Rfam assigns this 46-nucleotide RNA sequence from Acipenser ruthenus to the family "Histone 3' UTR stem-loop". A search with the family's covariance model found it, with a score of 40 bits.
RNA sequence: ACAAAGGCUCUUCUAAGAGCCACCCAAAAUAUCACACAAAGAGUUU
Number, nucleotide and partner (000 for none) at each position: 001a000002c000003a000004a000005a000006g021007g020008c019009u018010c017011u016012u000013c000014u000015a000016a011017g010018a009019g008020c007021c006022a000023c000024c000025c000026a000027a000028a000029a000030u000031a000032u000033c000034a000035c000036a000037c000038a000039a000040a000041g000042a000043g000044u000045u000046u000
The mRNAs of metazoan histone genes lack a poly-A tail. 3' end processing occurs at a site between a highly conserved stem-loop (modelled by this family) and a purine rich region around 20 nts downstream (the histone downstream element, or HDE). The stem-loop is bound by a 31 kDa stem-loop binding protein (SLBP - also termed the histone hairpin binding protein, or HBP). Together with U7 snRNA binding of the HDE, SLBP binding nucleate s the formation of the processing complex. The histone 3' UTR stem-loop is also involved in nucleocytoplasmic transport of the mRNA, and in stability regulation and translation efficiency in the cytoplasm. The base pairs follow the family's consensus structure, which is taken from published work. The literature on the family includes a 2002 paper in RNA by DeJong et al., "NMR structure and dynamics of the RNA-binding site for the histone mRNA stem-loop binding protein". The family's RNA type in Rfam is cis-regulatory element. Its family is annotated with mRNA 3'-end processing by stem-loop binding and cleavage in the Gene Ontology.